[Rfam]
RNA sequence: UGACCGAUUUCUCUUGGUGUUCAGAGUCUCAGUUUUUGUCUAGCACCAUUUGAAAUCGGUUAUGA
Numbered sequence: 001u002g003a004c005c006g007a008u009u010u011c012u013c014u015u016g017g018u019g020u021u022c023a024g025a026g027u028c029u030c031a032g033u034u035u036u037u038g039u040c041u042a043g044c045a046c047c048a049u050u051u052g053a054a055a056u057c058g059g060u061u062a063u064g065a
Base pairs, nucleotide, nucleotide: 001062002060004059005058006057007056008055009054010053011052015048016047017046018045019044023041024040025039
A member of the RNA family "mir-29 microRNA precursor family", 65 nucleotides long. From the family's description: This family represents the microRNA (miRNA) precursors mir-29. Gene Ontology terms of the family: RISC complex and gene silencing by miRNA.